SmY spliceosomal RNA: a 78-nucleotide sequence from Caenorhabditis brenneri. By type it is a spliceosomal small nuclear RNA. A search with the family's covariance model found it, with a score of 72 bits. For this family Rfam cites "A novel family of C. elegans snRNPs contains proteins associated with trans-splicing" (MacMorris et al., RNA, 2007).
[Rfam]
RNA sequence: AAUUCUUAUGAAUAUACUGCAGGGCCUUCAUCAAGACCCAGUGAACAAUUUUUGGGACCCUAUUCUUUGAAUAGGGUA
Numbered sequence: 001a002a003u004u005c006u007u008a009u010g011a012a013u014a015u016a017c018u019g020c021a022g023g024g025c026c027u028u029c030a031u032c033a034a035g036a037c038c039c040a041g042u043g044a045a046c047a048a049u050u051u052u053u054g055g056g057a058c059c060c061u062a063u064u065c066u067u068u069g070a071a072u073a074g075g076g077u078a
Stems, first nucleotide, its partner, number of pairs: 022039003026035003057077009